[Rfam]
A member of the RNA family "nrdJ RNA" from Streptomyces griseoviridis, 84 nucleotides long. The family's consensus secondary structure is taken from published work. It is annotated as a small RNA. The source organism's lineage runs through Bacteria, Bacillati, Kitasatosporales, Streptomycetaceae and Streptomyces.

RNA sequence: ACUUGCCGUGGGCCGCUUCACGCGUGUCCCGCGACAUCAGACAGAACACCGUGCCACGGGAACAACGCGGCACUUCGGGGCGUU
Number, nucleotide and partner (000 for none) at each position: 001a000002c000003u000004u036005g035006c000007c033008g032009u031010g030011g029012g028013c000014c026015g025016c024017u000018u000019c000020a000021c000022g000023c000024g016025u015026g014027u000028c012029c011030c010031g009032c008033g007034a000035c005036a004037u000038c000039a000040g000041a000042c000043a000044g000045a000046a000047c000048a000049c000050c000051g073052u072053g071054c070055c069056a000057c067058g066059g000060g000061a000062a000063c000064a000065a000066c058067g057068c000069g055070g054071c053072a052073c051074u000075u000076c000077g000078g000079g000080g000081c000082g000083u000084u000